[Rfam]
RNA sequence: AGAUGUCAGGCCGGAAACGCCACCGGAUGGUCGUAAACGGUGCGGCCUGUGACGACCCCCGGGCGGACCGGGU
Numbered sequence: 001a002g003a004u005g006u007c008a009g010g011c012c013g014g015a016a017a018c019g020c021c022a023c024c025g026g027a028u029g030g031u032c033g034u035a036a037a038c039g040g041u042g043c044g045g046c047c048u049g050u051g052a053c054g055a056c057c058c059c060c061g062g063g064c065g066g067a068c069c070g071g072g073u
Stems, first nucleotide, its partner, number of pairs: 005053002007049005023040003058072005
Notes: General Flavivirus exoribonuclease-resistant RNA element: a 73-nucleotide RNA from Orthoflavivirus aroaense. NCBI's taxonomy places the organism under Viruses, Riboviria, Orthornavirae, Orthoflavivirus, Aroa virus. The exoribonuclease-resistant RNA elements (xrRNA) are described throughout all groups of flaviviruses. Usually, each virus harbors two xrRNAs, xrRNA1 and xrRNA2, in the beginning of the 3' UTR. The formation of these stem-loops, especially xrRNA1, is vital to ensure resistance against XRN1 activity.